[Rfam]
RNA sequence: AGUCAUAUGCUUGUCUCAAAGAUUAAGCCAUGCAUGUCUAAGUAUAAGCGACUUGUACUGUGAAACUGCGAAUGGCUCAUUAAAUCAGUUAUGGUUUCUUUGAUGGUACCUUGCUACUUGGAUACCCGUAGUAAUUCUAGAGCUAAUACAUGCAGGAAUGCCCGACUUCGGAAGGGCUGUAUUUAUUAGAUAAGAAACCUUCUCGGGUUCGCCCGGUUGUGUGCUGAGUCAUAAUAACUGCUCGAAUCGCACGGCUCUACGCCGGCGAUGGUUCAUUCAAAUUUCUGCCCUAUCAGCUUUCGAUGGUAGGAUAGAGGCCUACCAUGGCGUUAACGGGUAACGGAGAAUUAGGGUUCGAUUCCGGAGAGGGAGCCUGAGAGAUGGCUACCACAUCCAAGGAAGGCAGCAGGCGCGUAAAUUGCCCGAAUCCUGACACAGGGAGGUAGUGACAAGAAAUAACAAUACAGGGCUACUUCUAGUCUUGUAAUUGGAAUGAGUACAACUUACAUCUCUUCACGAGGAUCAAUUGGAGGGCAAGUCUGGUGCCAGCAGCCGCGGUAAUUCCAGCUCCAAAAGCGUAUAUUAAAGUUGUUG
Numbered sequence: 001a002g003u004c005a006u007a008u009g010c011u012u013g014u015c016u017c018a019a020a021g022a023u024u025a026a027g028c029c030a031u032g033c034a035u036g037u038c039u040a041a042g043u044a045u046a047a048g049c050g051a052c053u054u055g056u057a058c059u060g061u062g063a064a065a066c067u068g069c070g071a072a073u074g075g076c077u078c079a080u081u082a083a084a085u086c087a088g089u090u091a092u093g094g095u096u097u098c099u100u101u102g103a104u105g106g107u108a109c110c111u112u113g114c115u116a117c118u119u120g121g122a123u124a125c126c127c128g129u130a131g132u133a134a135u136u137c138u139a140g141a142g143c144u145a146a147u148a149c150a151u152g153c154a155g156g157a158a159u160g161c162c163c164g165a166c167u168u169c170g171g172a173a174g175g176g177c178u179g180u181a182u183u184u185a186u187u188a189g190a191u192a193a194g195a196a197a198c199c200u201u202c203u204c205g206g207g208u209u210c211g212c213c214c215g216g217u218u219g220u221g222u223g224c225u226g227a228g229u230c231a232u233a234a235u236a237a238c239u240g241c242u243c244g245a246a247u248c249g250c251a252c253g254g255c256u257c258u259a260c261g262c263c264g265g266c267g268a269u270g271g272u273u274c275a276u277u278c279a280a281a282u283u284u285c286u287g288c289c290c291u292a293u294c295a296g297c298u299u300u301c302g303a304u305g306g307u308a309g310g311a312u313a314g315a316g317g318c319c320u321a322c323c324a325u326g327g328c329g330u331u332a333a334c335g336g337g338u339a340a341c342g343g344a345g346a347a348u349u350a351g352g353g354u355u356c357g358a359u360u361c362c363g364g365a366g367a368g369g370g371a372g373c374c375u376g377a378g379a380g381a382u383g384g385c386u387a388c389c390a391c392a393u394c395c396a397a398g399g400a401a402g403g404c405a406g407c408a409g410g411c412g413c414g415u416a417a418a419u420u421g422c423c424c425g426a427a428u429c430c431u432g433a434c435a436c437a438g439g440g441a442g443g444u445a446g447u448g449a450c451a452a453g454a455a456a457u458a459a460c461a462a463u464a465c466a467g468g469g470c471u472a473c474u475u476c477u478a479g480u481c482u483u484g485u486a487a488u489u490g491g492a493a494u495g496a497g498u499a500c501a502a503c504u505u506a507c508a509u510c511u512c513u514u515c516a517c518g519a520g521g522a523u524c525a526a527u528u529g530g531a532g533g534g535c536a537a538g539u540c541u542g543g544u545g546c547c548a549g550c551a552g553c554c555g556c557g558g559u560a561a562u563u564c565c566a567g568c569u570c571c572a573a574a575a576g577c578g579u580a581u582a583u584u585a586a587a588g589u590u591g592u593u594g
Stems, first nucleotide, its partner, number of pairs: 001584003005581007014454003020447001021413001027411003031408003036069002041067003048061002076366003086287003091282002095280002101275003117152001119150002126142001129139003160177004166171001183237006197225001199223001205214003247268004252264004289337003296328003303325008341363004345356004368389002371386003391402001393400002419445001421444003428440005460490003463486010497517002499514001501513001527573006540567004549556002
The record is a 594-nucleotide part of an RNA from Phaeocystis globosa, which matches "Eukaryotic small subunit ribosomal RNA" in Rfam. Pairs were carried over by alignment from the consensus structure, which is taken from published work. It is one of the family's seed sequences.